[Rfam]
RNA sequence: AAAAAGGGCUCUGCGUGUCUACGCGAGCCGGACAGAAGUGUUCGGUUCGGAAUGGUCAUCAAGACAUUUCGAGGGCAUAUUCUUUGAACUUGGUCUGCCUGACAAUUACGGGCGGCCGU
Numbered sequence: 001a002a003a004a005a006g007g008g009c010u011c012u013g014c015g016u017g018u019c020u021a022c023g024c025g026a027g028c029c030g031g032a033c034a035g036a037a038g039u040g041u042u043c044g045g046u047u048c049g050g051a052a053u054g055g056u057c058a059u060c061a062a063g064a065c066a067u068u069u070c071g072a073g074g075g076c077a078u079a080u081u082c083u084u085u086g087a088a089c090u091u092g093g094u095c096u097g098c099c100u101g102a103c104a105a106u107u108a109c110g111g112g113c114g115g116c117c118g119u
Base pairs, nucleotide, nucleotide: 008076009075010074011073012072014025015024016023017022026047027046028045029044030043031042032041033040034039048071049070050069051068052067053066054065092117093116094115095114097113098112099111100110101109
This 119-nucleotide RNA from Hymenolepis diminuta belongs to the Rfam family "U11 spliceosomal RNA".
Rfam classes the family as a spliceosomal small nuclear RNA.